RNA sequence: GGGUGGGAGGCAGUUGUUGCCUCUCAGGAUUUCAAGUGGUCGGGCCGCCACCU
Numbered sequence: 001g002g003g004u005g006g007g008a009g010g011c012a013g014u015u016g017u018u019g020c021c022u023c024u025c026a027g028g029a030u031u032u033c034a035a036g037u038g039g040u041c042g043g044g045c046c047g048c049c050a051c052c053u
Base pairs, nucleotide, nucleotide: 005025006024007023008022009021010020011019012018034053036051037050038049039048040047
RNA: nhaA-I RNA